[Rfam]
The record is a 72-nucleotide sequence from Pyrobaculum arsenaticum, which matches "tRNA" in Rfam. Rfam classes the family as a transfer RNA.
RNA sequence: GGGCCGGUAGUCUAGCGGAAGGAUGCCCGCCUCGCGCGCGGGAGAUCCCGGGUUCGAAUCCCGGCCGGUCCA
Numbered sequence: 001g002g003g004c005c006g007g008u009a010g011u012c013u014a015g016c017g018g019a020a021g022g023a024u025g026c027c028c029g030c031c032u033c034g035c036g037c038g039c040g041g042g043a044g045a046u047c048c049c050g051g052g053u054u055c056g057a058a059u060c061c062c063g064g065c066c067g068g069u070c071c072a
Stems, first nucleotide, its partner, number of pairs: 001071007010024004026042005048064005
Dot-bracket structure: (((((((..((((.......)))).(((((.......))))).....(((((.......)))))))))))).